[Rfam]
RNA sequence: GACGAACCACCGCCUAAUCGCCGCAACGGCGAGCCGGGGACCCAGGUGUGUGGGGUGAAGCCGCGUUCCCGCGGCCGGGCGUGCUUCCCGCUCGAACCCGUCAGCUAACCCGGUCGGCGGCCGAGUGGAAGAAA
Numbered sequence: 001g002a003c004g005a006a007c008c009a010c011c012g013c014c015u016a017a018u019c020g021c022c023g024c025a026a027c028g029g030c031g032a033g034c035c036g037g038g039g040a041c042c043c044a045g046g047u048g049u050g051u052g053g054g055g056u057g058a059a060g061c062c063g064c065g066u067u068c069c070c071g072c073g074g075c076c077g078g079g080c081g082u083g084c085u086u087c088c089c090g091c092u093c094g095a096a097c098c099c100g101u102c103a104g105c106u107a108a109c110c111c112g113g114u115c116g117g118c119g120g121c122c123g124a125g126u127g128g129a130a131g132a133a134a
Base pairs, nucleotide, nucleotide: 011119012118013117014116018032019031020030021029022028033114034113035112036111037110038109043052044051053099054098055097061074062073063072064071077093078092079091080090
RNA: c-di-AMP riboswitch aptamer (ydaO/yuaA leader)